[Rfam]
RNA: Small nucleolar RNA SNORD83
Organism: Eubucco bourcierii
RNA sequence: GCCAAAUGAUGUGAAGUGGAUGGCAUGAGCGCUUUGUGCGAAGAUGACCUUCAUCUAUCACCCAAUCCUGAUGGCU
Numbered sequence: 001g002c003c004a005a006a007u008g009a010u011g012u013g014a015a016g017u018g019g020a021u022g023g024c025a026u027g028a029g030c031g032c033u034u035u036g037u038g039c040g041a042a043g044a045u046g047a048c049c050u051u052c053a054u055c056u057a058u059c060a061c062c063c064a065a066u067c068c069u070g071a072u073g074g075c076u
Stems, first nucleotide, its partner, number of pairs: 001075004029039004